[Rfam]
RNA sequence: UCAGCACCUCGCUAGGCGAGGCUCCUGCACGAACACAGGCCACUGAUCCGACGACGUCGAGAGACGCCCAGGGUUAGGACAGAUCUCCCCGGCUUAAGGGGUGAUCCGAGGUGGCUUCCCGUCCAGGGAUUACGUCGUGCAGUGCCGAAGCUCUGACGAGAGAGGUGGUCG
Dot-bracket structure: ....(((((((.[.(((..(((..((((((((......(((((.(((((.....((((....))))....)))))......((((..(((......])))..))))....))))).(((.......))).....)))))))).)))...)))....)....))))))....
Shown here is a 171-nucleotide RNA sequence from Mycobacteroides abscessus, a member of the family "M-box riboswitch aptamer (ykoK leader)". M-box riboswitch, also know as ykoK leader is described as a metaloregulatory RNA that sense divalent metals and function as a genetic control element of genes related to divalent metal transport in bacteria. It was first reported upstream of the B.subtilis ykoK gene and genes with related functions in other bacteria. Pairs were carried over by alignment from the consensus structure. Its family is annotated with regulation of gene expression and response to magnesium ion in the Gene Ontology. A reference for the family is Dann CE 3rd et al. (2007), "Structure and mechanism of a metal-sensing regulatory RNA", Cell.